A member of the RNA family "mir-449 microRNA precursor family" from Sciurus carolinensis, 84 nucleotides long. The family has 41 seed sequences and 325 matches in Rfam 15.1.
[Rfam]
RNA sequence: UGUGUGUGAUGGGUUGGCAGUGUAUUGUUAGCUGGUUAUGUAAAUGACAUCAGCUAACAUGCAACUGCUAUCUUAUUGCAUAUA
Numbered sequence: 001u002g003u004g005u006g007u008g009a010u011g012g013g014u015u016g017g018c019a020g021u022g023u024a025u026u027g028u029u030a031g032c033u034g035g036u037u038a039u040g041u042a043a044a045u046g047a048c049a050u051c052a053g054c055u056a057a058c059a060u061g062c063a064a065c066u067g068c069u070a071u072c073u074u075a076u077u078g079c080a081u082a083u084a
Stems, first nucleotide, its partner, number of pairs: 001084013015070007022062003027058010037046003
Annotation:
On this family, see Linsen et al., BMC Genomics 2010: "Small RNA expression and strain specificity in the rat". Gene Ontology terms of the family: miRNA-mediated post-transcriptional gene silencing and RISC complex. Clan: mir-34 clan.